[Rfam]
This 127-nucleotide RNA sequence from Otolemur garnettii belongs to the Rfam family "Small nucleolar RNA SNORA11".
It scores 115 bits against the family's covariance model.
U107 (SNORA11) is a member of the H/ACA class of snoRNAs that guide the sites of modification of uridines to pseudouridines. This snoRNA was identified by RT-PCR from blood cells and its expression confirmed by Northern blot analysis. There is no predicted target for this guide snRNA.
On this family, see Gu et al., Nucleic Acids Res 2005: "A novel experimental approach for systematic identification of box H/ACA snoRNAs from eukaryotes".
The family's RNA type in Rfam is H/ACA-box small nucleolar RNA.
RNA sequence: GGGGUGUGUUCAAAGCAAGGGGCCUAAAGAAUGGCUCCUCUGUUUAUAACACCCAACAGGAAUCUGGGAUCAUUACGAUUAGGGGCGCAAAACUUAUGGCCUCCCUACAAACAAAUUUCCUACAUGU
Numbered sequence: 001g002g003g004g005u006g007u008g009u010u011c012a013a014a015g016c017a018a019g020g021g022g023c024c025u026a027a028a029g030a031a032u033g034g035c036u037c038c039u040c041u042g043u044u045u046a047u048a049a050c051a052c053c054c055a056a057c058a059g060g061a062a063u064c065u066g067g068g069a070u071c072a073u074u075a076c077g078a079u080u081a082g083g084g085g086c087g088c089a090a091a092a093c094u095u096a097u098g099g100c101c102u103c104c105c106u107a108c109a110a111a112c113a114a115a116u117u118u119c120c121u122a123c124a125u126g127u
Stems, first nucleotide, its partner, number of pairs: 002054005013045005019039003022035003067120003074113001079109001082102003086098002089095002